[Rfam]
RNA: sRNA-Xcc1
RNA sequence: GGCGGGUCUAUACACGGAAAUACAAUACCGAAAGGGAAUACCGUGAGCCGUCUAUGAGCGGUAGUUGAAGCCCGCCCCCCUUAU
Numbered sequence: 001g002g003c004g005g006g007u008c009u010a011u012a013c014a015c016g017g018a019a020a021u022a023c024a025a026u027a028c029c030g031a032a033a034g035g036g037a038a039u040a041c042c043g044u045g046a047g048c049c050g051u052c053u054a055u056g057a058g059c060g061g062u063a064g065u066u067g068a069a070g071c072c073c074g075c076c077c078c079c080c081u082u083a084u
Stems, first nucleotide, its partner, number of pairs: 001076007013045004019039001028035002047062005